A member of the RNA family "Rhodo-rpoB RNA", 96 nucleotides long.
Rfam classes the family as a cis-regulatory element.
The sequence is in the family's curated seed alignment.
[Rfam]
RNA sequence: GGCUCGGGCGCGGACCGGUGGGACGGUCCGCAGGAAUGGAGCCUACUAUUUCCGUUUCGCUUGCGGCAGCGCGGCCGAGGCCCGAAGGCACGCGCG
Numbered sequence: 001g002g003c004u005c006g007g008g009c010g011c012g013g014a015c016c017g018g019u020g021g022g023a024c025g026g027u028c029c030g031c032a033g034g035a036a037u038g039g040a041g042c043c044u045a046c047u048a049u050u051u052c053c054g055u056u057u058c059g060c061u062u063g064c065g066g067c068a069g070c071g072c073g074g075c076c077g078a079g080g081c082c083c084g085a086a087g088g089c090a091c092g093c094g095c096g
Base pairs, nucleotide, nucleotide: 001043002042003041004040005039010031011030012029013028014027015026016025017024069095070094071093072092074089075088076087